Record summary:
Shown here is a 72-nucleotide RNA from Dictyostelium discoideum, a member of the family "tRNA". Rfam links the family to the GO term triplet codon-amino acid adaptor activity.

[Rfam]
RNA sequence: AGCUUCUUAACUCAGGGGUAGAGUGCGAGGCCCAUAACCUCGAGGUCCUAGGAUCGAAACCUAGAGAAGCUA
Numbered sequence: 001a002g003c004u005u006c007u008u009a010a011c012u013c014a015g016g017g018g019u020a021g022a023g024u025g026c027g028a029g030g031c032c033c034a035u036a037a038c039c040u041c042g043a044g045g046u047c048c049u050a051g052g053a054u055c056g057a058a059a060c061c062u063a064g065a066g067a068a069g070c071u072a
Base pairs, nucleotide, nucleotide: 001071002070003069004068005067006066007065010024011023012022013021026042027041028040029039030038048064049063050062051061052060